[Rfam]
RNA sequence: UUGCUAAAGGGUCGAAUGCGUCGCUAAGAUUCUACCCAUCUGUUUCACUCUGUCAGCUUCUGUGUGUUUUGGCACAGUGGUUGAUCAUUCAAAGAUGUUACAUUU
Numbered sequence: 001u002u003g004c005u006a007a008a009g010g011g012u013c014g015a016a017u018g019c020g021u022c023g024c025u026a027a028g029a030u031u032c033u034a035c036c037c038a039u040c041u042g043u044u045u046c047a048c049u050c051u052g053u054c055a056g057c058u059u060c061u062g063u064g065u066g067u068u069u070u071g072g073c074a075c076a077g078u079g080g081u082u083g084a085u086c087a088u089u090c091a092a093a094g095a096u097g098u099u100a101c102a103u104u105u
Stems, first nucleotide, its partner, number of pairs: 037097004052085007
The family of this 105-nucleotide RNA from Kalanchoe fedtschenkoi is "Small nucleolar RNA snoR99".
Rfam classes the family as an H/ACA-box small nucleolar RNA.
A reference for the family is Marker et al. (2002), "Experimental RNomics: identification of 140 candidates for small non-messenger RNAs in the plant Arabidopsis thaliana", Curr Biol.